RNA sequence: UCCGUCCGGGUCCGUGGUUGCGUCAUUGGUCGGGCUGAGCCCGGUCCAUGGCAAGCCGAUGCCAGUCGCAGGCGAAACGGCCCACGUAAUCACACGGGAGGCCAUGCCUCCGGUGUGAGAUCACGGUGCGGCUUAGGAGUAAGUCCUGCCUCGGCCCCGGCACCAGAUGUGCCGGACGCCGGGAGAAGGCCGGUAGUGACGGAGAAGUUGCGGAAGCCUCAGCAGGCGGCUGUGGGGACGAAGACCAGGUCGGCCGGGCGGA
Numbered sequence: 001u002c003c004g005u006c007c008g009g010g011u012c013c014g015u016g017g018u019u020g021c022g023u024c025a026u027u028g029g030u031c032g033g034g035c036u037g038a039g040c041c042c043g044g045u046c047c048a049u050g051g052c053a054a055g056c057c058g059a060u061g062c063c064a065g066u067c068g069c070a071g072g073c074g075a076a077a078c079g080g081c082c083c084a085c086g087u088a089a090u091c092a093c094a095c096g097g098g099a100g101g102c103c104a105u106g107c108c109u110c111c112g113g114u115g116u117g118a119g120a121u122c123a124c125g126g127u128g129c130g131g132c133u134u135a136g137g138a139g140u141a142a143g144u145c146c147u148g149c150c151u152c153g154g155c156c157c158c159g160g161c162a163c164c165a166g167a168u169g170u171g172c173c174g175g176a177c178g179c180c181g182g183g184a185g186a187a188g189g190c191c192g193g194u195a196g197u198g199a200c201g202g203a204g205a206a207g208u209u210g211c212g213g214a215a216g217c218c219u220c221a222g223c224a225g226g227c228g229g230c231u232g233u234g235g236g237g238a239c240g241a242a243g244a245c246c247a248g249g250u251c252g253g254c255c256g257g258g259c260g261g262a
Stems, first nucleotide, its partner, number of pairs: 001262009012253003015247005059233003062072001064133007081126002086121001090118006124240001145226005150183005187219004196211002
Rfam assigns this 262-nucleotide RNA sequence from Nocardioides seonyuensis to the family "raiA RNA". It is annotated as a riboswitch. The match comes from Rfam's covariance-model search (138 bits). The source organism's lineage runs through Bacteria, Bacillati, Propionibacteriales, Nocardioidaceae and Nocardioides.